RNA sequence: GGUUUUGCGAUGAUAAGAACAUAAAUUCCUCGUUCUGAAUGCUGAAUUUGGGCUUGGUUGGUUGUGUACACUAAUUGGAUUUGAGCAAA
Numbered sequence: 001g002g003u004u005u006u007g008c009g010a011u012g013a014u015a016a017g018a019a020c021a022u023a024a025a026u027u028c029c030u031c032g033u034u035c036u037g038a039a040u041g042c043u044g045a046a047u048u049u050g051g052g053c054u055u056g057g058u059u060g061g062u063u064g065u066g067u068a069c070a071c072u073a074a075u076u077g078g079a080u081u082u083g084a085g086c087a088a089a
Stems, first nucleotide, its partner, number of pairs: 003089002006087002